[Rfam]
RNA: Plastid-ccsA-ndhD-1 3UTR RNA
RNA sequence: UUGUUUUUAAGAACCGUUUGAAUCACGACUUGAUUCAAAUGGUUCUUAAAAA
Numbered sequence: 001u002u003g004u005u006u007u008u009a010a011g012a013a014c015c016g017u018u019u020g021a022a023u024c025a026c027g028a029c030u031u032g033a034u035u036c037a038a039a040u041g042g043u044u045c046u047u048a049a050a051a052a
Stems, first nucleotide, its partner, number of pairs: 007049019